Shown here is a 71-nucleotide RNA from Moschus moschiferus, a member of the family "tRNA".
The match comes from Rfam's covariance-model search (48 bits).
Lineage of the source: Eukaryota > Metazoa > Vertebrata > Teleostomi > Moschus.
About the family: Transfer RNA (tRNA) molecules are approximately 80 nucleotides in length.
By type it is a transfer RNA.
[Rfam]
RNA sequence: UCCCAAGUGUCUCAGUGGUAAAGAAUCUGCCUGCCAAGCAGAAGACUCGGGUUCAAUCCCUGAAUUGGAAA
Numbered sequence: 001u002c003c004c005a006a007g008u009g010u011c012u013c014a015g016u017g018g019u020a021a022a023g024a025a026u027c028u029g030c031c032u033g034c035c036a037a038g039c040a041g042a043a044g045a046c047u048c049g050g051g052u053u054c055a056a057u058c059c060c061u062g063a064a065u066u067g068g069a070a071a
Stems, first nucleotide, its partner, number of pairs: 001070001003068004010024003026042005047063005